Small nucleolar RNA SNORD58: a 71-nucleotide RNA sequence from Menidia menidia. It is annotated as a C/D-box small nucleolar RNA. It scores 48 bits against the family's covariance model. Rfam 15.1 lists 2,484 matches to the family in 680 species. From the family's description: snoRNA U58 is found in introns 1, 3 and 6 of the ribosomal protein RPL17 gene in humans. For this family Rfam cites "Purified box C/D snoRNPs are able to reproduce site-specific 2'-O-methylation of target RNA in vitro" (Galardi et al., Mol Cell Biol, 2002). The organism belongs to Menidia, within Eukaryota.
RNA sequence: UGGCAGGGAUGACCUCUUAGGACACCUUUGGAUCAAAGCAUGAAAAAAAAUCACUGAUGAAGCUGAGCUGC
Numbered sequence: 001u002g003g004c005a006g007g008g009a010u011g012a013c014c015u016c017u018u019a020g021g022a023c024a025c026c027u028u029u030g031g032a033u034c035a036a037a038g039c040a041u042g043a044a045a046a047a048a049a050a051u052c053a054c055u056g057a058u059g060a061a062g063c064u065g066a067g068c069u070g071c
Base pairs, nucleotide, nucleotide: 001070002069003068004067